[Rfam]
RNA sequence: UAACUGGUGCAAGUACAGUCUGAGUAAGAGUCAAGUCGCUCAGUAGCUAGUAACCAAGGUACAGAGUAAUCUGUGCCUUGAAGCGUUAUGAAAAACGUCAAUAAAGGAUUUGAAGGAACUGGAGAGACCCUACUUUAC
Numbered sequence: 001u002a003a004c005u006g007g008u009g010c011a012a013g014u015a016c017a018g019u020c021u022g023a024g025u026a027a028g029a030g031u032c033a034a035g036u037c038g039c040u041c042a043g044u045a046g047c048u049a050g051u052a053a054c055c056a057a058g059g060u061a062c063a064g065a066g067u068a069a070u071c072u073g074u075g076c077c078u079u080g081a082a083g084c085g086u087u088a089u090g091a092a093a094a095a096c097g098u099c100a101a102u103a104a105a106g107g108a109u110u111u112g113a114a115g116g117a118a119c120u121g122g123a124g125a126g127a128c129c130c131u132a133c134u135u136u137a138c
Stems, first nucleotide, its partner, number of pairs: 020043005050089005055080006064071002096112002100110003115131002